[Rfam]
RNA sequence: AUAUAUAUGGAGCAAUAAACUUUUUCUUGUUCUAUCAAGAGGGCUUAUUGCUCCUUAUA
Number, nucleotide and partner (000 for none) at each position: 001a000002u000003a000004u000005a000006u057007a056008u000009g054010g053011a052012g051013c050014a049015a048016u047017a046018a000019a000020c000021u000022u043023u000024u041025u040026c039027u038028u037029g036030u000031u000032c000033u000034a000035u000036c029037a028038a027039g026040a025041g024042g000043g022044c000045u000046u017047a016048u015049u014050g013051c012052u011053c010054c009055u000056u007057a006058u000059a000